The family of this 45-nucleotide sequence from Clostridium intestinale is "PreQ1 (pre queuosine) riboswitch aptamer". The family has 43 seed sequences and 873 matches in Rfam 15.1. This family is a bacterial riboswitch that binds to the metabolite preQ1, an intermediate in the biosynthesis of the modified nucleoside queuosine from GTP. One example of this riboswitch is located in the leader of the Bacillus subtilis ykvJKLM (queCDEF) operon which encodes four genes necessary for queuosine production. PreQ1 binding to the riboswitch aptamer is thought to induce premature transcription termination within the leader to down-regulate expression of these genes.
RNA sequence: CUAGGAGAGGUUCGUAACCAUCCCUCUAUAAAAAACUAGGAAUUA
Numbered sequence: 001c002u003a004g005g006a007g008a009g010g011u012u013c014g015u016a017a018c019c020a021u022c023c024c025u026c027u028a029u030a031a032a033a034a035a036c037u038a039g040g041a042a043u044u045a
Stems, first nucleotide, its partner, number of pairs: 006027005015038002
For this family Rfam cites "The structural basis for recognition of the PreQ0 metabolite by an unusually small riboswitch aptamer domain" (Spitale et al., J Biol Chem, 2009).